[Rfam]
RNA sequence: GUGCGAUGAUGCAUUUUACUCAUCAACACAUCAUUCUGAAAGGACAGGUGUGUGGAAAACUAAUGACUGAGCACA
Numbered sequence: 001g002u003g004c005g006a007u008g009a010u011g012c013a014u015u016u017u018a019c020u021c022a023u024c025a026a027c028a029c030a031u032c033a034u035u036c037u038g039a040a041a042g043g044a045c046a047g048g049u050g051u052g053u054g055g056a057a058a059a060c061u062a063a064u065g066a067c068u069g070a071g072c073a074c075a
Base pairs, nucleotide, nucleotide: 001074002073003072004071
The record is a 75-nucleotide sequence from Equus caballus, which matches "Small nucleolar RNA SNORD63" in Rfam. The family's RNA type in Rfam is C/D-box small nucleolar RNA. On this family, see Galardi et al., Mol Cell Biol 2002: "Purified box C/D snoRNPs are able to reproduce site-specific 2'-O-methylation of target RNA in vitro". Pairs were carried over by alignment from the consensus structure, which was predicted with PFOLD. Rfam's curators put it in the seed alignment. snoRNA U63 is found in both humans and mice.